This 396-nucleotide RNA from Aestuariibaculum marinum belongs to the Rfam family "transfer-messenger RNA". Bacterial tmRNA, also known as 10Sa RNA or SsrA, is named for its dual tRNA and mRNA-like properties. The match comes from Rfam's covariance-model search (139 bits).
[Rfam]
RNA sequence: GGGGUCGACUGGUUUUGACAGCGAGAUUAAUUGAACGGUAAGCACGUCGUGUAAUGAUUUUGAAACACGUUAAAGGCUAAAUCAAACUUUAAACGGCGAGAAUAACUACGCUUUAGCUGCUUAAUCUGAAUUAUAGUAAGAUUUGCCUAGGCGCACAAGGUGCGCAAGCUAAAUGUCUCCGGAAAGCCUUGGUUAACGGCGUUCCUUUUAGAGGCAUCGUAAAUGUUGACAUAGAUUGGGUAGUGCUUUGAUGCCCUUUCGAAAUUAAAAAAGCUAAGCUUAUAAGUGGGUUGUCUUUAACCAGCUUUUAGUCGAAAAUACAAGAAAAGAAUAAACGUGUAGAAAGCCCUUUGGUUACUUGUUUGGACGAGAGUUCGAUUCUCUCCGACUCCACUU
Numbered sequence: 001g002g003g004g005u006c007g008a009c010u011g012g013u014u015u016u017g018a019c020a021g022c023g024a025g026a027u028u029a030a031u032u033g034a035a036c037g038g039u040a041a042g043c044a045c046g047u048c049g050u051g052u053a054a055u056g057a058u059u060u061u062g063a064a065a066c067a068c069g070u071u072a073a074a075g076g077c078u079a080a081a082u083c084a085a086a087c088u089u090u091a092a093a094c095g096g097c098g099a100g101a102a103u104a105a106c107u108a109c110g111c112u113u114u115a116g117c118u119g120c121u122u123a124a125u126c127u128g129a130a131u132u133a134u135a136g137u138a139a140g141a142u143u144u145g146c147c148u149a150g151g152c153g154c155a156c157a158a159g160g161u162g163c164g165c166a167a168g169c170u171a172a173a174u175g176u177c178u179c180c181g182g183a184a185a186g187c188c189u190u191g192g193u194u195a196a197c198g199g200c201g202u203u204c205c206u207u208u209u210a211g212a213g214g215c216a217u218c219g220u221a222a223a224u225g226u227u228g229a230c231a232u233a234g235a236u237u238g239g240g241u242a243g244u245g246c247u248u249u250g251a252u253g254c255c256c257u258u259u260c261g262a263a264a265u266u267a268a269a270a271a272a273g274c275u276a277a278g279c280u281u282a283u284a285a286g287u288g289g290g291u292u293g294u295c296u297u298u299a300a301c302c303a304g305c306u307u308u309u310a311g312u313c314g315a316a317a318a319u320a321c322a323a324g325a326a327a328a329g330a331a332u333a334a335a336c337g338u339g340u341a342g343a344a345a346g347c348c349c350u351u352u353g354g355u356u357a358c359u360u361g362u363u364u365g366g367a368c369g370a371g372a373g374u375u376c377g378a379u380u381c382u383c384u385c386c387g388a389c390u391c392c393a394c395u396u
Stems, first nucleotide, its partner, number of pairs: 001392007019365003024360002027357001031354005037348003043339005048069005056082001058080002112173007174216006181205004186200003192230006234260002238256003245274005278313001280311003284307004289302003294330003297326002369385005